[Rfam]
RNA sequence: CUCUUAUCAAGAGUGGCGGAGGGACAGACCCUGUGAAGCCCGGCAACCUUCAAGUUUUUUCUUGAAAAGGUGCUAAUUUCUGCAGAUUAAUUUCUGGAAGAUAAGAG
Number, nucleotide and partner (000 for none) at each position: 001c107002u106003c105004u104005u103006a102007u101008c100009a000010a000011g000012a000013g041014u000015g040016g039017c038018g000019g000020a000021g031022g030023g029024a000025c082026a081027g080028a079029c023030c022031c021032u000033g000034u000035g000036a000037a000038g017039c016040c015041c013042g074043g073044c072045a071046a000047c070048c069049u066050u065051c064052a063053a000054g000055u000056u000057u000058u000059u000060u000061c000062u000063u052064g051065a050066a049067a000068a000069g048070g047071u045072g044073c043074u042075a000076a000077u000078u099079u028080c027081u026082g025083c096084a095085g094086a093087u000088u000089a000090a000091u000092u000093u086094c085095u084096g083097g000098a000099a078100g008101a007102u006103a005104a004105g003106a002107g001
RNA: SAM riboswitch aptamer (S box leader)
Organism: Bacilli bacterium VT-13-104